The record is a 130-nucleotide RNA from Papilio machaon, which matches "Small nucleolar RNA psi18S-841/snoR66" in Rfam. The source organism's lineage runs through Eukaryota, Protostomia, Panorpida, Neolepidoptera and Papilio. Pairs were carried over by alignment from the consensus structure, which was predicted with RNAfold. Rfam links the family to the GO terms RNA processing and nucleolus. The match comes from Rfam's covariance-model search (53 bits). From the family's description: psi18S-841 is a member of the H/ACA class of snoRNA. This family is responsible for guiding the modification of uridine 841 in Drosophila 18S rRNA to pseudouridine. Clan: SNORA28 clan. Rfam classes the family as an H/ACA-box small nucleolar RNA.

RNA sequence: UGCAAGGGCACUCUGUGUUAUUCAUUAUCGAUAUGAUUUCACAAUUUGUUACCUUGCUAUAAAAAAACCAUCAAACCCUAUUCCAGAUUACCUGCAUAUCGUAAUUUGGUCAUAUUGAUGGUGACAUUUC
Dot-bracket structure: .((((((..((..((((.(((...........)))...).)))....))..)))))).....(((..(.(((.((.......(((((((.(.........).))))))).....))))).).....))).
Numbered sequence: 001u002g003c004a005a006g007g008g009c010a011c012u013c014u015g016u017g018u019u020a021u022u023c024a025u026u027a028u029c030g031a032u033a034u035g036a037u038u039u040c041a042c043a044a045u046u047u048g049u050u051a052c053c054u055u056g057c058u059a060u061a062a063a064a065a066a067a068c069c070a071u072c073a074a075a076c077c078c079u080a081u082u083c084c085a086g087a088u089u090a091c092c093u094g095c096a097u098a099u100c101g102u103a104a105u106u107u108g109g110u111c112a113u114a115u116u117g118a119u120g121g122u123g124a125c126a127u128u129u130c
Stems, first nucleotide, its partner, number of pairs: 002057006010049002014043003017039001019035003063129003068121001070119003074116002083109007091101001